A member of the RNA family "Glycine riboswitch aptamer" from beta proteobacterium AAP99, 91 nucleotides long. Its Rfam clan is "Glycine riboswitch clan". Pairs were carried over by alignment from the consensus structure.
RNA sequence: CGAGUUGGCGCGGGAGAGUGCGACCCCCAAGGGGUGGCCACCGAAGGCGUAAUGCCCGAAAUCGCUCAGGUUCCCGAACCGCACCGACGUU
Numbered sequence: 001c002g003a004g005u006u007g008g009c010g011c012g013g014g015a016g017a018g019u020g021c022g023a024c025c026c027c028c029a030a031g032g033g034g035u036g037g038c039c040a041c042c043g044a045a046g047g048c049g050u051a052a053u054g055c056c057c058g059a060a061a062u063c064g065c066u067c068a069g070g071u072u073c074c075c076g077a078a079c080c081g082c083a084c085c086g087a088c089g090u091u
Stems, first nucleotide, its partner, number of pairs: 006086003010082004020038002023035001040071003043067002047065003053058001